[Rfam]
The family of this 138-nucleotide RNA from Clostridiales bacterium CHKCI001 is "Clostridiales-1 RNA".
It scores 71 bits against the family's covariance model.
Rfam classes the family as a small RNA.
Pairs were carried over by alignment from the consensus structure, which is taken from published work.
RNA sequence: UAAAAGUGUCGUCAAUAGACGGACAGUGCUGGCUGGAUAUUAGACGACCUGACCUGUAUGAGCAAGUAAGGCAUUUACCUGGAUUGCGAAUACGGGCAGCGAUGUCGAGAGUGCGUAGUAUGGAGACAUCGACUUUUA
Number, nucleotide and partner (000 for none) at each position: 001u138002a137003a136004a135005a134006g133007u132008g048009u047010c046011g045012u000013c000014a041015a040016u039017a038018g000019a000020c035021g034022g033023a000024c031025a030026g000027u000028g000029c000030u025031g024032g000033c022034u021035g020036g000037a000038u017039a016040u015041u014042a000043g000044a000045c011046g010047a009048c008049c000050u000051g000052a000053c096054c095055u094056g093057u092058a091059u090060g000061a000062g087063c086064a085065a084066g000067u000068a000069a080070g079071g078072c000073a000074u000075u000076u000077a000078c071079c070080u069081g000082g000083a000084u065085u064086g063087c062088g000089a000090a059091u058092a057093c056094g055095g054096g053097c000098a000099g000100c131101g130102a129103u128104g127105u126106c125107g000108a000109g000110a000111g121112u120113g119114c118115g000116u000117a000118g114119u113120a112121u111122g000123g000124a000125g106126a105127c104128a103129u102130c101131g100132a007133c006134u005135u004136u003137u002138a001